[Rfam]
RNA sequence: UUUCAAAAAUACCAAACUCAUCGUGAGGCGGGGACGUAAAGCCACGGGUCUUUUUGGGAAGAUAGCCGGCUUGUCAAU
Numbered sequence: 001u002u003u004c005a006a007a008a009a010u011a012c013c014a015a016a017c018u019c020a021u022c023g024u025g026a027g028g029c030g031g032g033g034a035c036g037u038a039a040a041g042c043c044a045c046g047g048g049u050c051u052u053u054u055u056g057g058g059a060a061g062a063u064a065g066c067c068g069g070c071u072u073g074u075c076a077a078u
Stems, first nucleotide, its partner, number of pairs: 013036001017032003021028002040072002043069001045068003048063006
c-di-GMP-I riboswitch aptamer: a 78-nucleotide RNA from Desulfonema limicola.